[Rfam]
RNA sequence: GUGCAGAUCGCAGCGCCAUUUUCAGAGCUAUUAGUGAACGAAUGUAGUCAUAGCUCUUUAAAUGGUACUGCUGUAUGUAA
Numbered sequence: 001g002u003g004c005a006g007a008u009c010g011c012a013g014c015g016c017c018a019u020u021u022u023c024a025g026a027g028c029u030a031u032u033a034g035u036g037a038a039c040g041a042a043u044g045u046a047g048u049c050a051u052a053g054c055u056c057u058u059u060a061a062a063u064g065g066u067a068c069u070g071c072u073g074u075a076u077g078u079a080a
Base pairs, nucleotide, nucleotide: 002079003078004077007074008073011070012069013068015066016065017064018063019062020061021060024057025056026055027054028053029052030051031050

Source information
Rfam assigns this 80-nucleotide RNA from Sphaeramia orbicularis to the family "mir-458 microRNA precursor family". A search with the family's covariance model found it, with a score of 78 bits. The organism belongs to Sphaeramia, within Eukaryota. Pairs were carried over by alignment from the consensus structure, which was predicted with RNAalifold.